Nuclear RNase P: a 383-nucleotide sequence from Lachancea dasiensis. Rfam describes the family as follows. Ribonuclease P (RNase P) is a ubiquitous endoribonuclease, found in archaea, bacteria and eukarya as well as chloroplasts and mitochondria.

RNA sequence: AGCACCAGCAUUCCUACCAGAACAACCUGUUUGCACGCAAUCUCAAUGAUUCUUCAUAAGCAGGUGGGAAAUUCGGUGGAACACAGCGAAACGCCGGUAACAACUAUGUCUAGAAUAUAGUGUUAUCUACCAAGGAUAUGUCUUCGUAAGAAGAUAUUAUCUUGUAUCUCGUGAGAGACCGUCACUGGAAAGUGAGGGUGGUCGUUGUUAUCAGAAAUAUACAUGUUAUGUGUCACGGGCCUGGUCCUGUGGUAUCUAAUGUGAUGGGAAUGGCAGCGGAUGUUUCGUUUGACUUUGCUUCUUGGAAAGUAAAGGUCUGUUGAGUGCAAUGGUAGGAGAAUGUCCAUUGGACGUUUAACCCGAUACCGAUUACUGUUGAUGCU
Numbered sequence: 001a002g003c004a005c006c007a008g009c010a011u012u013c014c015u016a017c018c019a020g021a022a023c024a025a026c027c028u029g030u031u032u033g034c035a036c037g038c039a040a041u042c043u044c045a046a047u048g049a050u051u052c053u054u055c056a057u058a059a060g061c062a063g064g065u066g067g068g069a070a071a072u073u074c075g076g077u078g079g080a081a082c083a084c085a086g087c088g089a090a091a092c093g094c095c096g097g098u099a100a101c102a103a104c105u106a107u108g109u110c111u112a113g114a115a116u117a118u119a120g121u122g123u124u125a126u127c128u129a130c131c132a133a134g135g136a137u138a139u140g141u142c143u144u145c146g147u148a149a150g151a152a153g154a155u156a157u158u159a160u161c162u163u164g165u166a167u168c169u170c171g172u173g174a175g176a177g178a179c180c181g182u183c184a185c186u187g188g189a190a191a192g193u194g195a196g197g198g199u200g201g202u203c204g205u206u207g208u209u210a211u212c213a214g215a216a217a218u219a220u221a222c223a224u225g226u227u228a229u230g231u232g233u234c235a236c237g238g239g240c241c242u243g244g245u246c247c248u249g250u251g252g253u254a255u256c257u258a259a260u261g262u263g264a265u266g267g268g269a270a271u272g273g274c275a276g277c278g279g280a281u282g283u284u285u286c287g288u289u290u291g292a293c294u295u296u297g298c299u300u301c302u303u304g305g306a307a308a309g310u311a312a313a314g315g316u317c318u319g320u321u322g323a324g325u326g327c328a329a330u331g332g333u334a335g336g337a338g339a340a341u342g343u344c345c346a347u348u349g350g351a352c353g354u355u356u357a358a359c360c361c362g363a364u365a366c367c368g369a370u371u372a373c374u375g376u377u378g379a380u381g382c383u
Stems, first nucleotide, its partner, number of pairs: 001383004007377003012337007025065005039051004074368005084282002167178004180196001182195005203278007222263007338356007
Its Rfam clan is "RNaseP clan". NCBI's taxonomy places the organism under Eukaryota, Opisthokonta, Saccharomycetes, Saccharomycetales, Lachancea.